Nucleotides: 149
Stems, first nucleotide, its partner, number of pairs: 001034001003032004008027002040065007048057001050056002071112002073108002077104004082099003113143012
Number, partner (000 for none) and nucleotide at each position: 001034g002000u003032c004031g005030c006029c007000g008027g009026c010000a011000u012000c013000a014000g015000u016000c017000g018000c019000c020000c021000c022000a023000g024000c025000c026009g027008c028000c029006g030005g031004c032003g033000c034001c035000c036000u037000u038000c039000g040065g041064g042063g043062g044061a045060g046059c047000a048057g049000c050056g051055u052000a053000a054000c055051a056050u057048u058000c059046g060045c061044u062043u063042c064041c065040c066000c067000a068000a069000u070000c071112u072111a073108c074107c075000u076000u077104c078103c079102g080101g081000u082099g083098g084097a085000a086000u087000u088000a089000c090000g091000c092000c093000c094000c095000c096000c097084u098083c099082c100000g101080u102079c103078g104077g105000a106000a107074g108073g109000c110000c111072u112071a113143g114142g115141g116140c117139g118138g119137u120136g121135a122134g123133g124132u125000c126000c127000c128000c129000c130000c131000a132124g133123c134122u135121u136120c137119a138118c139117c140116g141115c142114c143113c144000g145000c146000c147000u148000u149000u
Shown here is a 149-nucleotide RNA from Bradyrhizobium diazoefficiens, a member of the family "Bradyrhizobiaceae sRNA BjrC80". The family's RNA type in Rfam is small RNA. The literature on the family includes a 2012 paper in RNA Biol by Madhugiri et al., "Small RNAs of the Bradyrhizobium/Rhodopseudomonas lineage and their analysis". Lineage of the source: Bacteria > Pseudomonadati > Alphaproteobacteria > Bradyrhizobium > Bradyrhizobium diazoefficiens.